[Rfam]
RNA: Purine riboswitch aptamer
Organism: Cetobacterium somerae
RNA sequence: CUUGAUAUUAUUUAUUUAGCUCAUAUAUACCUCAAAUACGGUGAGGAGUCUCUACAAUCAACCUUAAAUUGAUUACUAUGGCUUAUUAAUAUAAAAGU
Numbered sequence: 001c002u003u004g005a006u007a008u009u010a011u012u013u014a015u016u017u018a019g020c021u022c023a024u025a026u027a028u029a030c031c032u033c034a035a036a037u038a039c040g041g042u043g044a045g046g047a048g049u050c051u052c053u054a055c056a057a058u059c060a061a062c063c064u065u066a067a068a069u070u071g072a073u074u075a076c077u078a079u080g081g082c083u084u085a086u087u088a089a090u091a092u093a094a095a096a097g098u
Stems, first nucleotide, its partner, number of pairs: 018084002021081005030046005056074006